[Rfam]
RNA sequence: UAAAACUACCUCGAGGCCAUAGCAGAAGCACUCAUGGCACAGCCUGUCAGAUUCCUAUGAAUCUGCAAAUUCUGUU
Numbered sequence: 001u002a003a004a005a006c007u008a009c010c011u012c013g014a015g016g017c018c019a020u021a022g023c024a025g026a027a028g029c030a031c032u033c034a035u036g037g038c039a040c041a042g043c044c045u046g047u048c049a050g051a052u053u054c055c056u057a058u059g060a061a062u063c064u065g066c067a068a069a070u071u072c073u074g075u076u
Stems, first nucleotide, its partner, number of pairs: 015044003021076007028040001048065007
The record is a 76-nucleotide RNA sequence from Alligator mississippiensis, which matches "Mammalian CPEB3 ribozyme" in Rfam. The mammalian CPEB3 ribozyme is a self cleaving RNA located in the second intron of the CPEB3 gene which belongs to a family of genes regulating messenger RNA polyadenylation. This ribozyme is highly conserved and found only in mammals. The base pairs follow the family's consensus structure, which is taken from published work.